The record is a 116-nucleotide sequence from Pseudomonas sp. HPB0071, which matches "Pseudomon-1/ErsA RNA" in Rfam.
It is annotated as a small RNA.
Pairs were carried over by alignment from the consensus structure, which is taken from published work.
Its family is annotated with response to antibiotic, mRNA binding and positive regulation of translation, ncRNA-mediated in the Gene Ontology.
The organism belongs to Pseudomonas, within Bacteria.
Rfam's curators write: Functions to regulate the AlgC enzyme. Based on this information, the new name ErsA for the RNA was adopted. Negatively regulates major porin oprD expression responsible for uptake of carbapenem antibiotics, by base pairing with oprD 5'UTR (leading to increased bacterial resistance to meropenem).Positively regulates amrZ mRNA and contributes to biofilm formation and motility.
[Rfam]
RNA sequence: AUGCUCCUUUGCUGUUUAGUGUUGGCAGAUUAACGGACCCCGCCCUAGCGGUCCGAACUUAAACCCCGAUCUUUUCCCCUCCCCAAUGAAGAUCGGGGUUUUUUUUGCGUCUGGAA
Numbered sequence: 001a002u003g004c005u006c007c008u009u010u011g012c013u014g015u016u017u018a019g020u021g022u023u024g025g026c027a028g029a030u031u032a033a034c035g036g037a038c039c040c041c042g043c044c045c046u047a048g049c050g051g052u053c054c055g056a057a058c059u060u061a062a063a064c065c066c067c068g069a070u071c072u073u074u075u076c077c078c079c080u081c082c083c084c085a086a087u088g089a090a091g092a093u094c095g096g097g098g099u100u101u102u103u104u105u106u107g108c109g110u111c112u113g114g115a116a
Base pairs, nucleotide, nucleotide: 034055035054036053037052038051039050061102062101063100064098065097066096067095068094069093070092071091072090073089074088